MIR5225 microRNA precursor family: a 111-nucleotide sequence from Trifolium pratense.
Rfam links the family to the GO terms miRNA-mediated post-transcriptional gene silencing and RISC complex.
Pairs were carried over by alignment from the consensus structure, which was predicted with RNAalifold.
[Rfam]
RNA sequence: UUUAGGGACUUCAGUCGCAGGAGAGAUGACACCUUAUGUAAUUAAUGGCUUGUAUACAUAGUCAAUUUUAACAUGAGUUGUCAUCUUUUCUCGACUGAAGUCCAGAUGCAU
Numbered sequence: 001u002u003u004a005g006g007g008a009c010u011u012c013a014g015u016c017g018c019a020g021g022a023g024a025g026a027u028g029a030c031a032c033c034u035u036a037u038g039u040a041a042u043u044a045a046u047g048g049c050u051u052g053u054a055u056a057c058a059u060a061g062u063c064a065a066u067u068u069u070a071a072c073a074u075g076a077g078u079u080g081u082c083a084u085c086u087u088u089u090c091u092c093g094a095c096u097g098a099a100g101u102c103c104a105g106a107u108g109c110a111u
Base pairs, nucleotide, nucleotide: 005103006102007101009100010099011098012097014095015094016093017092019091020090021089023087024086025085026084027083028082029081